[Rfam]
RNA sequence: AGAGGUUACAAGUCUGAGGCCACAGUAGAGGUGUUCGUGGCAUGGCCAUGCCAGAUUUCAAUGAAUCUGUGAAUCUGCU
Numbered sequence: 001a002g003a004g005g006u007u008a009c010a011a012g013u014c015u016g017a018g019g020c021c022a023c024a025g026u027a028g029a030g031g032u033g034u035u036c037g038u039g040g041c042a043u044g045g046c047c048a049u050g051c052c053a054g055a056u057u058u059c060a061a062u063g064a065a066u067c068u069g070u071g072a073a074u075c076u077g078c079u
Base pairs, nucleotide, nucleotide: 013048018047019046020045021044024079025078026077027076028075030074031043032042033041052069053068054067055066056065057064058063
A member of the RNA family "Mammalian CPEB3 ribozyme" from Crocodylus porosus, 79 nucleotides long. Pairs were carried over by alignment from the consensus structure, which is taken from published work. It scores 41 bits against the family's covariance model. NCBI's taxonomy places the organism under Eukaryota, Dipnotetrapodomorpha, Amniota, Archelosauria, Crocodylus.